MIR2593 microRNA precursor family: a 114-nucleotide RNA from Medicago truncatula. The source organism's lineage runs through Eukaryota, Streptophyta, Pentapetalae, Fabales and Medicago.
RNA sequence: AUGUAAGUAACUUUUCACUUUUUUGGUUCAUUCAAUAAAUAAUGCAUGUAGUCCAUAAUAUAGACCACAUACAUCAAUUAUUGAAUGAACUAAAAAGUGAAAAGUUGCUUACAU
Numbered sequence: 001a002u003g004u005a006a007g008u009a010a011c012u013u014u015u016c017a018c019u020u021u022u023u024u025g026g027u028u029c030a031u032u033c034a035a036u037a038a039a040u041a042a043u044g045c046a047u048g049u050a051g052u053c054c055a056u057a058a059u060a061u062a063g064a065c066c067a068c069a070u071a072c073a074u075c076a077a078u079u080a081u082u083g084a085a086u087g088a089a090c091u092a093a094a095a096a097g098u099g100a101a102a103a104g105u106u107g108c109u110u111a112c113a114u
Stems, first nucleotide, its partner, number of pairs: 002113006009106005015100003019097020040076001042074003049067001051065002